Small nucleolar RNA SNORD102: a 72-nucleotide sequence from Loxodonta africana. Taxonomically the source falls in Loxodonta (Eukaryota, Eumetazoa, Theria, Eutheria). It is annotated as a C/D-box small nucleolar RNA. The family's consensus secondary structure was predicted with PFOLD. On this family, see Vitali et al., Nucleic Acids Res 2003: "Identification of 13 novel human modification guide RNAs". Gene Ontology terms of the family: RNA processing and nucleolus.
RNA sequence: AGCUUGAUGAUGAUUGUCUUUUUGAUUGCUUUGAAGCAAUGUGAAAAACACAUUUCACCGGCUCUGAAAGCU
Dot-bracket structure: (((((..............................................................)))))